[Rfam]
RNA sequence: AAAGCAGGCGAGGUGAUCGCAGUUGCCGCUGCUUGCAGUGGUGGCUGAGGAAAGUCCGGGCUCCCGAAUGGCCAGGCUUGCUGGGUAACGCCCAGUGCGGGUGACCGUGAGGAGAGUGCCACAGAAACACACCGCCGAUGGCCGGCUUGCCGGCACAGGCAAGGGUGCAAGGGUGCGGUAAGAGCGCACCAGCAGCAUCGAGAGGUGCUGGCUCGGUAAACCCCGGCCGGGAGCAAGGCCCAGGGACGAUGGUUGGCCAUUGACCGGUCCCGACAACAGCGCGCCGCUCGAGGCCACCGGUAACGGUGGUCCCAGACAGAUGAUCAUCCAGCGAACAGAACCCGGCUUACGUCCUGCUUUCCGC
Numbered sequence: 001a002a003a004g005c006a007g008g009c010g011a012g013g014u015g016a017u018c019g020c021a022g023u024u025g026c027c028g029c030u031g032c033u034u035g036c037a038g039u040g041g042u043g044g045c046u047g048a049g050g051a052a053a054g055u056c057c058g059g060g061c062u063c064c065c066g067a068a069u070g071g072c073c074a075g076g077c078u079u080g081c082u083g084g085g086u087a088a089c090g091c092c093c094a095g096u097g098c099g100g101g102u103g104a105c106c107g108u109g110a111g112g113a114g115a116g117u118g119c120c121a122c123a124g125a126a127a128c129a130c131a132c133c134g135c136c137g138a139u140g141g142c143c144g145g146c147u148u149g150c151c152g153g154c155a156c157a158g159g160c161a162a163g164g165g166u167g168c169a170a171g172g173g174u175g176c177g178g179u180a181a182g183a184g185c186g187c188a189c190c191a192g193c194a195g196c197a198u199c200g201a202g203a204g205g206u207g208c209u210g211g212c213u214c215g216g217u218a219a220a221c222c223c224c225g226g227c228c229g230g231g232a233g234c235a236a237g238g239c240c241c242a243g244g245g246a247c248g249a250u251g252g253u254u255g256g257c258c259a260u261u262g263a264c265c266g267g268u269c270c271c272g273a274c275a276a277c278a279g280c281g282c283g284c285c286g287c288u289c290g291a292g293g294c295c296a297c298c299g300g301u302a303a304c305g306g307u308g309g310u311c312c313c314a315g316a317c318a319g320a321u322g323a324u325c326a327u328c329c330a331g332c333g334a335a336c337a338g339a340a341c342c343c344g345g346c347u348u349a350c351g352u353c354c355u356g357c358u359u360u361c362c363g364c
Stems, first nucleotide, its partner, number of pairs: 001360008010350001012328007020047011052348003056345005061233004070270002073267001075228003079225002081095005096110001097108004111223002116221002118217003132164002134160003139155002142152001172190006192212001193210007237285003247281002250278002261275002264272001292311008

Description:
Rfam assigns this 364-nucleotide sequence from Synechococcus sp. RCC307 to the family "Bacterial RNase P class A". It is annotated as a ribozyme.